[Rfam]
RNA sequence: ACUUCCCCUAGAAGCCUUGCAGAUGCUGCUGUUGUGUCACAUUUGUGUCACUAAGUGGCAGAGAGAAGAGAGGCUAUGUCUACAUUCAGUGUUCUGACCCAUGAACGUUUGAAUGAUUUAGUCUGACAUA
Numbered sequence: 001a002c003u004u005c006c007c008c009u010a011g012a013a014g015c016c017u018u019g020c021a022g023a024u025g026c027u028g029c030u031g032u033u034g035u036g037u038c039a040c041a042u043u044u045g046u047g048u049c050a051c052u053a054a055g056u057g058g059c060a061g062a063g064a065g066a067a068g069a070g071a072g073g074c075u076a077u078g079u080c081u082a083c084a085u086u087c088a089g090u091g092u093u094c095u096g097a098c099c100c101a102u103g104a105a106c107g108u109u110u111g112a113a114u115g116a117u118u119u120a121g122u123c124u125g126a127c128a129u130a
Base pairs, nucleotide, nucleotide: 002061003060005058006057007055009053010052011051014048015047019046020045021044022043024041025040028037029036068127071124072123073122074121075120076119083115084114086112087111088110089109090107091106092105093104094103
Shown here is a 130-nucleotide RNA from Prolemur simus, a member of the family "Small nucleolar RNA SNORA17". Its Rfam clan is "SNORA17 clan". It is annotated as an H/ACA-box small nucleolar RNA. A search with the family's covariance model found it, with a score of 106 bits. Taxonomically the source falls in Prolemur (Eukaryota, Chordata, Theria, Eutheria). From the family's description: snoRNA ACA 17 belongs to the H/ACA family of snoRNAs and is predicted to guide pseudouridylation of the 28S rRNA at positions U4659 and U4598. A reference for the family is Ofengand and Bakin (1997), "Mapping to nucleotide resolution of pseudouridine residues in large subunit ribosomal RNAs from representative eukaryotes, prokaryotes, archaebacteria, mitochondria and chloroplasts", J Mol Biol. Its family is annotated with RNA processing and nucleolus in the Gene Ontology.